[Rfam]
RNA sequence: GGGAUAUGAGGAGUGGAUGGAUCUCGCCAUUAAGAAUGCGAGUUGGGUGUCCUUCCCAAGCCUGGUUACGACAAUUUGGGCACUCCCCCUUUUUCCAAUCUGAUCCC
Numbered sequence: 001g002g003g004a005u006a007u008g009a010g011g012a013g014u015g016g017a018u019g020g021a022u023c024u025c026g027c028c029a030u031u032a033a034g035a036a037u038g039c040g041a042g043u044u045g046g047g048u049g050u051c052c053u054u055c056c057c058a059a060g061c062c063u064g065g066u067u068a069c070g071a072c073a074a075u076u077u078g079g080g081c082a083c084u085c086c087c088c089c090u091u092u093u094u095c096c097a098a099u100c101u102g103a104u105c106c107c
Stems, first nucleotide, its partner, number of pairs: 001107004014098001016096001023042005045085007063078002065075002
Rfam assigns this 107-nucleotide sequence from Arachis hypogaea to the family "Small nucleolar RNA Z279/snoR105/snoR108". A reference for the family is Marker et al. (2002), "Experimental RNomics: identification of 140 candidates for small non-messenger RNAs in the plant Arabidopsis thaliana", Curr Biol. From the family's description: This family includes the plant snoRNAs known as Z279, snoR105 and snoR108. The family's consensus secondary structure was predicted with PFOLD. Rfam links the family to the GO terms nucleolus and RNA processing.